[Rfam]
RNA sequence: CGGGUCCGUCCUUUACAACGGAUCGUCCGGCACGUACCUGCCGGUGAAGGAGCUGAUCA
Numbered sequence: 001c002g003g004g005u006c007c008g009u010c011c012u013u014u015a016c017a018a019c020g021g022a023u024c025g026u027c028c029g030g031c032a033c034g035u036a037c038c039u040g041c042c043g044g045u046g047a048a049g050g051a052g053c054u055g056a057u058c059a
Stems, first nucleotide, its partner, number of pairs: 009051007027044006

This 59-nucleotide sequence from Serinicoccus chungangensis belongs to the Rfam family "msiK RNA".
The family's consensus secondary structure is taken from published work.
The match comes from Rfam's covariance-model search (61 bits).
By type it is a cis-regulatory element.